A member of the RNA family "Acido-Lenti-1 RNA" from Cyclobacterium marinum, 46 nucleotides long.
The family's consensus secondary structure is taken from published work.
The source organism's lineage runs through Bacteria, Pseudomonadati, Cytophagia, Cyclobacterium and Cyclobacterium marinum.
[Rfam]
RNA sequence: UCAAGGGCUGACACCCUUGGCUGUGGUAUUGCGCCCCGUCAGGGCU
Number, nucleotide and partner (000 for none) at each position: 001u020002c019003a018004a017005g016006g015007g014008c000009u000010g000011a000012c000013a000014c007015c006016c005017u004018u003019g002020g001021c000022u000023g000024u000025g000026g000027u000028a000029u000030u000031g000032c000033g045034c044035c043036c042037c000038g000039u000040c000041a000042g036043g035044g034045c033046u000